The record is a 449-nucleotide part of an RNA from Halomarina oriensis, which matches "Archaeal large subunit ribosomal RNA" in Rfam. It scores 2860 bits against the family's covariance model. NCBI's taxonomy places the organism under Archaea, Methanobacteriota, Halobacteria, Natronomonadaceae, Halomarina.
RNA sequence: CCAACCGAAACAUGUCGAAGCAUGACCUCUGCAGAGGUUGUUCGUGAGGUAGAGCGACUGAUUGGGGCGAUCGACGCCGAGAGGCGUCGACACCCCUGUCAAACUCCGAACUUACGAACGCCGUAGACGCAGGGAGCCCGGUGUGCGGGGUAAGCUUGUGCACCGUGAGGGAGACAACCCAGAGCUGGGUUAAGGUCCCAAAAUGUGGAUUAAGUGCGAUUGAAGAUUGUCCCGAGCCCUAGACAGCCGGGAGGUGAGCUUAGAAGCAGCUACCCUCUAAGAAAAGCGUAACAGCUUACCGGCCGAGGUUCGGGGCGUCGAAAAUGAUCGGGGCUCAAAUCCACUACCGAGACCUAGCGGCACGCCUCAUAGCGUGUUCCCGUAGGUUGGCGCUCCGAUUGGGUGGAAGCACGGGUGAGAACUCGUGUGGACCGAUUGGUGACGAAAAU
Numbered sequence: 001c002c003a004a005c006c007g008a009a010a011c012a013u014g015u016c017g018a019a020g021c022a023u024g025a026c027c028u029c030u031g032c033a034g035a036g037g038u039u040g041u042u043c044g045u046g047a048g049g050u051a052g053a054g055c056g057a058c059u060g061a062u063u064g065g066g067g068c069g070a071u072c073g074a075c076g077c078c079g080a081g082a083g084g085c086g087u088c089g090a091c092a093c094c095c096c097u098g099u100c101a102a103a104c105u106c107c108g109a110a111c112u113u114a115c116g117a118a119c120g121c122c123g124u125a126g127a128c129g130c131a132g133g134g135a136g137c138c139c140g141g142u143g144u145g146c147g148g149g150g151u152a153a154g155c156u157u158g159u160g161c162a163c164c165g166u167g168a169g170g171g172a173g174a175c176a177a178c179c180c181a182g183a184g185c186u187g188g189g190u191u192a193a194g195g196u197c198c199c200a201a202a203a204u205g206u207g208g209a210u211u212a213a214g215u216g217c218g219a220u221u222g223a224a225g226a227u228u229g230u231c232c233c234g235a236g237c238c239c240u241a242g243a244c245a246g247c248c249g250g251g252a253g254g255u256g257a258g259c260u261u262a263g264a265a266g267c268a269g270c271u272a273c274c275c276u277c278u279a280a281g282a283a284a285a286g287c288g289u290a291a292c293a294g295c296u297u298a299c300c301g302g303c304c305g306a307g308g309u310u311c312g313g314g315g316c317g318u319c320g321a322a323a324a325u326g327a328u329c330g331g332g333g334c335u336c337a338a339a340u341c342c343a344c345u346a347c348c349g350a351g352a353c354c355u356a357g358c359g360g361c362a363c364g365c366c367u368c369a370u371a372g373c374g375u376g377u378u379c380c381c382g383u384a385g386g387u388u389g390g391c392g393c394u395c396c397g398a399u400u401g402g403g404u405g406g407a408a409g410c411a412c413g414g415g416u417g418a419g420a421a422c423u424c425g426u427g428u429g430g431a432c433c434g435a436u437u438g439g440u441g442a443c444g445a446a447a448a449u
Stems, first nucleotide, its partner, number of pairs: 001390006011024005026136001027134006036122003040119008052107001053105002060100003064096004069091001073088006140164009169180003184358007194348003203345001205344006225319003229316010246303005252276003257271003277281001282297001286295002359380002361376005391444001393441001395439008409428008